Shown here is an 87-nucleotide sequence from Gossypium aridum, a member of the family "MIR7486 microRNA precursor family". It scores 88 bits against the family's covariance model. Gene Ontology terms of the family: RISC complex and miRNA-mediated post-transcriptional gene silencing. The base pairs follow the family's consensus structure, which was predicted with RNAalifold.
RNA sequence: CACGUCAGCGCGCUUUGCUGAUGUGGCAGUAAAUCAAGCCCUCUAGGACGCGAUUUGCUGCCACAUCAGCAAAGCGCGUUGACGUGG
Numbered sequence: 001c002a003c004g005u006c007a008g009c010g011c012g013c014u015u016u017g018c019u020g021a022u023g024u025g026g027c028a029g030u031a032a033a034u035c036a037a038g039c040c041c042u043c044u045a046g047g048a049c050g051c052g053a054u055u056u057g058c059u060g061c062c063a064c065a066u067c068a069g070c071a072a073a074g075c076g077c078g079u080u081g082a083c084g085u086g087g
Stems, first nucleotide, its partner, number of pairs: 001086021023064013038049001040047002